[Rfam]
RNA sequence: ACUUAUCGAACGGCAUCUCCUCCUCCCAAAGCUGUUCGAUACGGAUCGGCGACACUCCUCCUCCCAGUUGUCGAUCAAGUUUAUAAAGCCCGACGGAUCCUCCCCCGUCGGGCUUUUACU
Numbered sequence: 001a002c003u004u005a006u007c008g009a010a011c012g013g014c015a016u017c018u019c020c021u022c023c024u025c026c027c028a029a030a031g032c033u034g035u036u037c038g039a040u041a042c043g044g045a046u047c048g049g050c051g052a053c054a055c056u057c058c059u060c061c062u063c064c065c066a067g068u069u070g071u072c073g074a075u076c077a078a079g080u081u082u083a084u085a086a087a088g089c090c091c092g093a094c095g096g097a098u099c100c101u102c103c104c105c106c107g108u109c110g111g112g113c114u115u116u117u118a119c120u
Stems, first nucleotide, its partner, number of pairs: 007038008016029001044076010086115011
RNA: Alphaproteobacterial ar14
Organism: Rhizobium sp. AC44/96